[Rfam]
This 50-nucleotide RNA from Aliirhizobium cellulosilyticum belongs to the Rfam family "Guanidine-II riboswitch aptamer (mini-ykkC)". The base pairs follow the family's consensus structure, which is taken from published work. NCBI's taxonomy places the organism under Bacteria, Pseudomonadati, Hyphomicrobiales, Rhizobiaceae, Aliirhizobium. Gene Ontology term of the family: regulation of gene expression.

Nucleotides: 050
Stems, first nucleotide, its partner, number of pairs: 001020001003018001005016004037050005
Number, partner (000 for none) and nucleotide at each position: 001020g002000c003018g004000u005016g006015a007014g008013g009000a010000c011000g012000a013008c014007c015006u016005c017000c018003c019000c020001c021000a022000g023000a024000a025000u026000g027000g028000g029000c030000a031000u032000u033000g034000a035000u036000g037050c038049c039048g040047g041046g042000a043000c044000g045000a046041c047040c048039c049038g050037g